Shown here is a 75-nucleotide RNA from Myotis davidii, a member of the family "mir-9223 microRNA precursor family".

[Rfam]
RNA sequence: ACCGGUUCUCAGGUGACGUACCCUGGAAUCGGGCUUCCUCCUCUCUGGUUCUGGGUGCGUCACCCGAGAACCACA
Dot-bracket structure: ....((((((.((((((.(((((.(((((((((..........)))))))))))))).)))))).))))))....
Numbered sequence: 001a002c003c004g005g006u007u008c009u010c011a012g013g014u015g016a017c018g019u020a021c022c023c024u025g026g027a028a029u030c031g032g033g034c035u036u037c038c039u040c041c042u043c044u045c046u047g048g049u050u051c052u053g054g055g056u057g058c059g060u061c062a063c064c065c066g067a068g069a070a071c072c073a074c075a
Stems, first nucleotide, its partner, number of pairs: 005071006012064006019057005025052009

Lineage of the source: Eukaryota > Sarcopterygii > Dipnotetrapodomorpha > Amniota > Myotis. The family has 9 seed sequences and 14,641 matches in Rfam 15.1. It scores 78 bits against the family's covariance model. Gene Ontology terms of the family: RISC complex and miRNA-mediated post-transcriptional gene silencing.